[Rfam]
RNA sequence: GGUGCUGGUUGACAACGAGAGAGAGCACGCUGGUCAGCAUUCAUGCAAUAGGGAUCCAUGGUUGCAUACUGGCGUGCUCCUUCUCGGUGUCAUUUGUGU
Numbered sequence: 001g002g003u004g005c006u007g008g009u010u011g012a013c014a015a016c017g018a019g020a021g022a023g024a025g026c027a028c029g030c031u032g033g034u035c036a037g038c039a040u041u042c043a044u045g046c047a048a049u050a051g052g053g054a055u056c057c058a059u060g061g062u063u064g065c066a067u068a069c070u071g072g073c074g075u076g077c078u079c080c081u082u083c084u085c086g087g088u089g090u091c092a093u094u095u096g097u098g099u
Stems, first nucleotide, its partner, number of pairs: 010092005016086002020082002023079001025077010
Background:
The family of this 99-nucleotide RNA from Dioscorea zingiberensis is "MIR535 microRNA precursor family". It scores 80 bits against the family's covariance model. The literature on the family includes a 2010 paper in Nucleic Acids Res by Zeng et al., "Conservation and divergence of microRNAs and their functions in Euphorbiaceous plants". Its family is annotated with miRNA-mediated post-transcriptional gene silencing and RISC complex in the Gene Ontology.